[Rfam]
RNA sequence: UCACCUGAACCCGUAGAUCCGAACUUGUGUUGACUUGUGUCGCAAGCUCGAUUCUAUGGGUCUAGGUAGC
Dot-bracket structure: ..(((((..(((..(((..(((.((((((...........)))))).)))..)))..)))..)))))...
RNA: mir-10 microRNA precursor family